[Rfam]
RNA sequence: GUUGCAGGACGGCCUGCAGCGAUAUACCGCACUGUUUGGGGACGACCCCG
Numbered sequence: 001g002u003u004g005c006a007g008g009a010c011g012g013c014c015u016g017c018a019g020c021g022a023u024a025u026a027c028c029g030c031a032c033u034g035u036u037u038g039g040g041g042a043c044g045a046c047c048c049c050g
Stems, first nucleotide, its partner, number of pairs: 001020008037050005

Shown here is a 50-nucleotide RNA from Tahibacter aquaticus, a member of the family "Guanidine-II riboswitch aptamer (mini-ykkC)". The base pairs follow the family's consensus structure, which is taken from published work. From the family's description: Simpler in structure and has fewer highly conserved nucleotide positions than the ykkC-yxkD leader. Despite this each of its two stem-loop structures directly bind free guanidine. Therefore, mini-ykkC RNA motif represents a distinct class of guanidine-sensing RNAs. Its crystal structure was also determined. A search with the family's covariance model found it, with a score of 37 bits. Rfam links the family to the GO term regulation of gene expression. The organism belongs to Tahibacter, within Bacteria.